[Rfam]
RNA sequence: UUCUUAUCGAGAGAGGUGGAGGGAUGGGCCCGAUGAAACCCGGCAACCGCGAGACACAGGUCUUGAAGGUGCCAAUUCCUAUGAAGGUACGCCUUCAGCAGAUGAGAA
Number, nucleotide and partner (000 for none) at each position: 001u108002u107003c106004u105005u104006a103007u102008c101009g000010a000011g000012a000013g041014a000015g040016g039017u038018g000019g000020a000021g031022g030023g029024a000025u081026g080027g079028g078029c023030c022031c021032g000033a000034u000035g000036a000037a000038a017039c016040c015041c013042g073043g072044c071045a070046a000047c069048c068049g000050c065051g064052a063053g062054a000055c000056a000057c000058a000059g000060g000061u000062c053063u052064u051065g050066a000067a000068g048069g047070u045071g044072c043073c042074a000075a000076u000077u100078c028079c027080u026081a025082u097083g096084a095085a094086g093087g092088u000089a000090c000091g000092c087093c086094u085095u084096c083097a082098g000099c000100a077101g008102a007103u006104g005105a004106g003107a002108a001
SAM riboswitch aptamer (S box leader): a 108-nucleotide RNA sequence from Alkalicoccus halolimnae. The source organism's lineage runs through Bacteria, Bacillati, Bacillota, Bacilli and Alkalicoccus.